Annotation: The record is a 202-nucleotide RNA from Firmicutes bacterium M10-2, which matches "T-box leader" in Rfam. It is annotated as a cis-regulatory leader.
[Rfam]
RNA sequence: AAAAUGGCGAUGAAUAAAAGGAGUAGUCUGGACAGAUUGAAAGAGAGUCCUCGGGUGGUGGAAGAGGAUAUGAAGGAAAGACGAAGGUAGUUUAGGAGCCGGUCUCUGAGUUUAGUAAGAGAUUCCGUGAUGCUGCGUUAAAGCAUUAAGGCAUGCUGCUGCAUGCGAAUUAAGGUGGUACCACGUCAAGCACGUCCUUAUG
Dot-bracket structure: ......((......((((.......((((........(........((((((...........)))))))........))))........))))...)).(((((((..........))))))).(((......))).............((((((....)))))).....((((.......((((.....))))))))...

NCBI's taxonomy places the organism under Bacteria, Bacillati, Bacillota.
From the family's description: Uncharged tRNA acts as the effector for transcription antitermination of genes in the T-box leader family. T-boxes are found upstream of many aminoacyl-tRNA synthetase genes and some amino acid biosynthetic genes usually in Gram-positive bacteria. The anticodon of a specific tRNA base pairs to a specifier sequence within the T-box motif, and the NCCA acceptor tail of the tRNA base pairs to a conserved bulge in the T-box antiterminator hairpin.
Rfam links the family to the GO term tRNA binding.
The match comes from Rfam's covariance-model search (117 bits).